[Rfam]
RNA sequence: GGAAGUGCCUGCUCACCUGGUGGUGGCCGCGGUCUUCAAAACCGUUGGGUCGUAAGUCAACCUUACGACCGGUGGGUUCGAUUCCCAUGCACUUCC
Numbered sequence: 001g002g003a004a005g006u007g008c009c010u011g012c013u014c015a016c017c018u019g020g021u022g023g024u025g026g027c028c029g030c031g032g033u034c035u036u037c038a039a040a041a042c043c044g045u046u047g048g049g050u051c052g053u054a055a056g057u058c059a060a061c062c063u064u065a066c067g068a069c070c071g072g073u074g075g076g077u078u079c080g081a082u083u084c085c086c087a088u089g090c091a092c093u094u095c096c
Stems, first nucleotide, its partner, number of pairs: 001096008013026005029045005048070007073087004
Source information: Selenocysteine transfer RNA: a 96-nucleotide RNA sequence from Cladocopium goreaui. A search with the family's covariance model found it, with a score of 73 bits. Lineage of the source: Eukaryota > Alveolata > Dinophyceae > Symbiodiniaceae > Cladocopium.